[Rfam]
RNA sequence: CGGGAGUAAAUGUGUUAAGGGAACUCGGCAAAUUAGCCCUGUAACUUUGGGAUAAGGGGUGCCUGCCCAGCGAUUGGGCAGGUCGCAGUGACAAGAUCGCUCCGACUGUCUAAUAACAACAUAGCAGACUGCAACUCCGAAAGGACUCGUAUAGUCUGUGAUUCCUGCCCAGUGCGAGUAUCUGAACACCGGGUUCAACCGGACGAAGGACUCGUAAACGGCGGGGGUAACUAUGACCCUCUUAAGGUAGCGUAGUACCUUGUCGCUUAAUUGGCGACUUGCAUGAAUGGAAUAACGAGAGCGAUACUGUCCCUAACACAUACCCGUUGAACCUUUUGUACUAGUGCAGAGACUAGUGA
Numbered sequence: 001c002g003g004g005a006g007u008a009a010a011u012g013u014g015u016u017a018a019g020g021g022a023a024c025u026c027g028g029c030a031a032a033u034u035a036g037c038c039c040u041g042u043a044a045c046u047u048u049g050g051g052a053u054a055a056g057g058g059g060u061g062c063c064u065g066c067c068c069a070g071c072g073a074u075u076g077g078g079c080a081g082g083u084c085g086c087a088g089u090g091a092c093a094a095g096a097u098c099g100c101u102c103c104g105a106c107u108g109u110c111u112a113a114u115a116a117c118a119a120c121a122u123a124g125c126a127g128a129c130u131g132c133a134a135c136u137c138c139g140a141a142a143g144g145a146c147u148c149g150u151a152u153a154g155u156c157u158g159u160g161a162u163u164c165c166u167g168c169c170c171a172g173u174g175c176g177a178g179u180a181u182c183u184g185a186a187c188a189c190c191g192g193g194u195u196c197a198a199c200c201g202g203a204c205g206a207a208g209g210a211c212u213c214g215u216a217a218a219c220g221g222c223g224g225g226g227g228u229a230a231c232u233a234u235g236a237c238c239c240u241c242u243u244a245a246g247g248u249a250g251c252g253u254a255g256u257a258c259c260u261u262g263u264c265g266c267u268u269a270a271u272u273g274g275c276g277a278c279u280u281g282c283a284u285g286a287a288u289g290g291a292a293u294a295a296c297g298a299g300a301g302c303g304a305u306a307c308u309g310u311c312c313c314u315a316a317c318a319c320a321u322a323c324c325c326g327u328u329g330a331a332c333c334u335u336u337u338g339u340a341c342u343a344g345u346g347c348a349g350a351g352a353c354u355a356g357u358g359a
Base pairs, nucleotide, nucleotide: 001326002325003324004323010321011320012319013318014317015316016315017314019312020311021310036060037059038058039057040056045050061083062082063081064080065079066078067077068076069075084088096305097304098303099302100301101300102299103297104296107121108120109119124159125158126157127156128155129154130153131152132149136145137144138143162292163291164290165289167222168221169220172219173218174215175214176213177212178211181210182209183208189202190201191200192199223241224240225239226238227237228236242246262278263277264276265275266274267273340357341356342355343354344353

This 359-nucleotide part of an RNA from Methanospirillum hungatei belongs to the Rfam family "Archaeal large subunit ribosomal RNA".
Lineage of the source: Archaea > Methanomicrobia > Methanospirillaceae > Methanospirillum > Methanospirillum hungatei.
On this family, see Yusupov et al., Science 2001: "Crystal structure of the ribosome at 5.5 A resolution".